[Rfam]
RNA sequence: GAUUUAUACAGAAGUGGCGAGAGACUGGCUCUAUGACCCACUGGCAACCAACAACACGAAGUUGAAAAGGUGCCAAUUCCUGUCCAAAACGUUGUUUUGGAGUAUAUAAAUA
Numbered sequence: 001g002a003u004u005u006a007u008a009c010a011g012a013a014g015u016g017g018c019g020a021g022a023g024a025c026u027g028g029c030u031c032u033a034u035g036a037c038c039c040a041c042u043g044g045c046a047a048c049c050a051a052c053a054a055c056a057c058g059a060a061g062u063u064g065a066a067a068a069g070g071u072g073c074c075a076a077u078u079c080c081u082g083u084c085c086a087a088a089a090c091g092u093u094g095u096u097u098u099g100g101a102g103u104a105u106a107u108a109a110a111u112a
Stems, first nucleotide, its partner, number of pairs: 002111007013042005021031003025082001027080002043074004048070002052064002078104001083101006